Mason-Pfizer monkey virus packaging signal: a 281-nucleotide RNA sequence from Nannospalax galili. About the family: This family represents a group of sequences that are related to the Mason-Pfizer monkey virus (MPMV) packaging signal. The packaging signal is located in the 5' UTR and is required for specific RNA encapsidation. A search with the family's covariance model found it, with a score of 146 bits. The literature on the family includes a 2004 paper in Virus Res by Mustafa et al., "Mutational analysis of the predicted secondary RNA structure of the Mason-Pfizer monkey virus packaging signal". The organism belongs to Nannospalax, within Eukaryota.
RNA sequence: UGGCACCCAAUGUGGGGCUUGGAUACUGGGGACAACAUGAGGGAGGCAACGGAGAAGAACGGGUGCACAGCCGCUAAAUCUCAAGCAAUUCGGAGACGUGCCAUGGGAGCCUGCUGCGACCGAACCGAAGGUAAGUCAAGCCAUCUGAAUCAUGGGGCAAGAAUUAAGCCAGCAUCAGAUUUAUGUUAUACAGUUAGGGGAAGCUCUCAAGACAAGAGGAGUAAAGGUUAGGACUGAGGAUUUAUUUCAUUUCUUUGAUUUUGUAAAGGACAUUUGUCCCU
Numbered sequence: 001u002g003g004c005a006c007c008c009a010a011u012g013u014g015g016g017g018c019u020u021g022g023a024u025a026c027u028g029g030g031g032a033c034a035a036c037a038u039g040a041g042g043g044a045g046g047c048a049a050c051g052g053a054g055a056a057g058a059a060c061g062g063g064u065g066c067a068c069a070g071c072c073g074c075u076a077a078a079u080c081u082c083a084a085g086c087a088a089u090u091c092g093g094a095g096a097c098g099u100g101c102c103a104u105g106g107g108a109g110c111c112u113g114c115u116g117c118g119a120c121c122g123a124a125c126c127g128a129a130g131g132u133a134a135g136u137c138a139a140g141c142c143a144u145c146u147g148a149a150u151c152a153u154g155g156g157g158c159a160a161g162a163a164u165u166a167a168g169c170c171a172g173c174a175u176c177a178g179a180u181u182u183a184u185g186u187u188a189u190a191c192a193g194u195u196a197g198g199g200g201a202a203g204c205u206c207u208c209a210a211g212a213c214a215a216g217a218g219g220a221g222u223a224a225a226g227g228u229u230a231g232g233a234c235u236g237a238g239g240a241u242u243u244a245u246u247u248c249a250u251u252u253c254u255u256u257g258a259u260u261u262u263g264u265a266a267a268g269g270a271c272a273u274u275u276g277u278c279c280c281u
Base pairs, nucleotide, nucleotide: 006031007030008029012026013025014024038046085132086131090128091127097122098121102118104116105115106114140158141157144156145155146154147153166207168204169203216256217255218254219253220252221251225243226242227241228240229239266281268279269278270277271276